[Rfam]
The record is a 78-nucleotide RNA sequence, which matches "Twister_sister_ribozyme" in Rfam.
RNA sequence: AGGCAGGGCAAGGCCCAGUCCCGUGCAAGCCGGGACCGCCCCUUCGGAAGAGGGGGCGCGGCGCUCAUUCCUGCGAAA
Numbered sequence: 001a002g003g004c005a006g007g008g009c010a011a012g013g014c015c016c017a018g019u020c021c022c023g024u025g026c027a028a029g030c031c032g033g034g035a036c037c038g039c040c041c042c043u044u045c046g047g048a049a050g051a052g053g054g055g056g057c058g059c060g061g062c063g064c065u066c067a068u069u070c071c072u073g074c075g076a077a078a
Base pairs, nucleotide, nucleotide: 004073005072006071007070013062014061015060016029018036020034021033022032037058038057039056040055041054042053043052044051045050
Dot-bracket structure: ...((((.....((([.(.(((......]..))).)(((((((((....))))))))).))).......)))).....
Background
Its family is annotated with catalytic activity in the Gene Ontology. Rfam's curators put it in the seed alignment.